Nucleotides: 154
Base pairs, nucleotide, nucleotide: 002153003152004151005150006149007148008145009144011143012142014140015139016138018136019135020134021132022131024129025128027127028126035121036120037119040118041117042116044114047111048110049109050108051107053104054103055102056101057100059098061097062096071087073085
Number, partner (000 for none) and nucleotide at each position: 001000u002153c003152u004151a005150g006149a007148a008145c009144u010000c011143g012142a013000u014140a015139u016138a017000u018136g019135g020134g021132c022131u023000g024129a025128a026000c027127a028126c029000u030000a031000a032000a033000c034000a035121a036120u037119g038000u039000c040118g041117g042116g043000c044114u045000a046000c047111a048110a049109g050108a051107c052000a053104g054103a055102u056101u057100c058000a059098g060000a061097c062096u063000u064000c065000u066000c067000u068000u069000u070000u071087g072000a073085u074000g075000c076000u077000a078000a079000g080000a081000u082000u083000u084000g085073g086000a087071c088000u089000u090000u091000c092000a093000a094000a095000c096062a097061g098059c099000a100057g101056a102055a103054u104053u105000g106000a107051g108050u109049c110048u111047u112000g113000g114044a115000c116042u117041c118040u119037c120036a121035u122000g123000a124000a125000u126028g127027u128025u129024u130000g131022a132021g133000g134020u135019c136018u137000c138016u139015g140014u141000c142012u143011u144009a145008g146000c147000u148007u149006u150005u151004u152003a153002g154000c

A member of the RNA family "MIR2912 microRNA precursor family" from Populus alba, 154 nucleotides long. The family's consensus secondary structure was predicted with RNAalifold. Rfam 15.1 lists 15,051 matches to the family in 15 species. The match comes from Rfam's covariance-model search (120 bits).